[Rfam]
RNA sequence: GGGACGGGCCUUUCAGGCAUCCUCUCCUAAUGACUUAUAGGGCUGGCUCCUCGGAGCCGGCCCUUUUUUUAUGCGCG
Numbered sequence: 001g002g003g004a005c006g007g008g009c010c011u012u013u014c015a016g017g018c019a020u021c022c023u024c025u026c027c028u029a030a031u032g033a034c035u036u037a038u039a040g041g042g043c044u045g046g047c048u049c050c051u052c053g054g055a056g057c058c059g060g061c062c063c064u065u066u067u068u069u070u071a072u073g074c075g076c077g
Base pairs, nucleotide, nucleotide: 008018009017010016011015041062042061043060044059045058046057047056048055049054
Dot-bracket structure: .......((((...))))......................(((((((((....)))))))))...............